[Rfam]
RNA sequence: GGUUUCGGUGCCGCCGGUGCCCUACCAAGGAAAGAACCCGGGGAGAAAGCACCCCACCAAGCCCCGCCUUUCCACCCGAGGCGCGUAAUCACCCGGGCGGGUGAACAUCACCGCCUGGGCUGGAUUUCCGAACCCCCAACUCCCCUACGCUCAGCGCAAACGACCGCAGACAUACAACGGCCCCCGCCGGGACUGCCAUCCCAAUACGAGGGCCUACCACCAAGGAAGCAAGGAAAAGGAAACCUUCCCG
Numbered sequence: 001g002g003u004u005u006c007g008g009u010g011c012c013g014c015c016g017g018u019g020c021c022c023u024a025c026c027a028a029g030g031a032a033a034g035a036a037c038c039c040g041g042g043g044a045g046a047a048a049g050c051a052c053c054c055c056a057c058c059a060a061g062c063c064c065c066g067c068c069u070u071u072c073c074a075c076c077c078g079a080g081g082c083g084c085g086u087a088a089u090c091a092c093c094c095g096g097g098c099g100g101g102u103g104a105a106c107a108u109c110a111c112c113g114c115c116u117g118g119g120c121u122g123g124a125u126u127u128c129c130g131a132a133c134c135c136c137c138a139a140c141u142c143c144c145c146u147a148c149g150c151u152c153a154g155c156g157c158a159a160a161c162g163a164c165c166g167c168a169g170a171c172a173u174a175c176a177a178c179g180g181c182c183c184c185c186g187c188c189g190g191g192a193c194u195g196c197c198a199u200c201c202c203a204a205u206a207c208g209a210g211g212g213c214c215u216a217c218c219a220c221c222a223a224g225g226a227a228g229c230a231a232g233g234a235a236a237a238g239g240a241a242a243c244c245u246u247c248c249c250g
Stems, first nucleotide, its partner, number of pairs: 007221004016076004089104006119155005179214005185208002189202004224248005
Source information:
Shown here is a 250-nucleotide sequence, a member of the family "Streptomyces sRNA 4677". The literature on the family includes a 2014 paper in PLoS One by Hindra et al., "Complex intra-operonic dynamics mediated by a small RNA in Streptomyces coelicolor". Pairs were carried over by alignment from the consensus structure. Rfam 15.1 lists 563 matches to the family in 285 species.